[Rfam]
RNA sequence: UUCCCCCACGGAGAUGGCAUGCCUCCGACAACCGCCGCGCCCGCGCGGCUGAUGAUGCCUACGCAACA
Numbered sequence: 001u002u003c004c005c006c007c008a009c010g011g012a013g014a015u016g017g018c019a020u021g022c023c024u025c026c027g028a029c030a031a032c033c034g035c036c037g038c039g040c041c042c043g044c045g046c047g048g049c050u051g052a053u054g055a056u057g058c059c060u061a062c063g064c065a066a067c068a
Stems, first nucleotide, its partner, number of pairs: 010026004016059005034049006
Fluoride riboswitch aptamer (crcB RNA motif): a 68-nucleotide RNA from Nitrosovibrio sp. Nv17. Taxonomically the source falls in Nitrosovibrio (Bacteria, Pseudomonadati, Nitrosomonadales, Nitrosomonadaceae). The match comes from Rfam's covariance-model search (51 bits).